The family of this 137-nucleotide sequence from Nannospalax galili is "Small nucleolar RNA SNORA58". The match comes from Rfam's covariance-model search (141 bits). The family is grouped with related families in Rfam's "SNORA44 clan". Rfam's curators write: ACA52 is a member of the H/ACA class of snoRNA that guide the sites of modification of uridines to pseudouridines. The literature on the family includes a 2001 paper in EMBO J by Huttenhofer et al., "RNomics: an experimental approach that identifies 201 candidates for novel, small, non-messenger RNAs in mouse".

RNA sequence: CGGCAUAUCCGUAGACCUUACCUGACUCCAUGCUCAUGGCCAGGCAAGGGGGACAGUGUAUGCAAGAGUAAUUGGAGUUCUUGCAAGUUCUAACCAGCUUAAUCAAUAACUGGGUAAAUUGCAGUACUCCAACAUUC
Numbered sequence: 001c002g003g004c005a006u007a008u009c010c011g012u013a014g015a016c017c018u019u020a021c022c023u024g025a026c027u028c029c030a031u032g033c034u035c036a037u038g039g040c041c042a043g044g045c046a047a048g049g050g051g052g053a054c055a056g057u058g059u060a061u062g063c064a065a066g067a068g069u070a071a072u073u074g075g076a077g078u079u080c081u082u083g084c085a086a087g088u089u090c091u092a093a094c095c096a097g098c099u100u101a102a103u104c105a106a107u108a109a110c111u112g113g114g115u116a117a118a119u120u121g122c123a124g125u126a127c128u129c130c131a132a133c134a135u136u137c
Stems, first nucleotide, its partner, number of pairs: 003063006016049004021044004074130004079126001082123003094113004